[Rfam]
RNA: Small nucleolar RNA SNORA8
RNA sequence: UGCACUGAAUGGUAUCUGCACCCAGCAGCGUUCUUCUGAUGGGGUGUUCAAAAACCAGUGCUACAGUGAUUCAGCAUCUGGCAUCGUUGGUUUUCACUCUGCAGUGGUUGUUAAACCUGGUAUUCUUGCUGAUACAUGU
Numbered sequence: 001u002g003c004a005c006u007g008a009a010u011g012g013u014a015u016c017u018g019c020a021c022c023c024a025g026c027a028g029c030g031u032u033c034u035u036c037u038g039a040u041g042g043g044g045u046g047u048u049c050a051a052a053a054a055c056c057a058g059u060g061c062u063a064c065a066g067u068g069a070u071u072c073a074g075c076a077u078c079u080g081g082c083a084u085c086g087u088u089g090g091u092u093u094u095c096a097c098u099c100u101g102c103a104g105u106g107g108u109u110g111u112u113a114a115a116c117c118u119g120g121u122a123u124u125c126u127u128g129c130u131g132a133u134a135c136a137u138g139u
Stems, first nucleotide, its partner, number of pairs: 002061006015054001017052001018047006024040001026038003064128003068124003071120004080108001082106003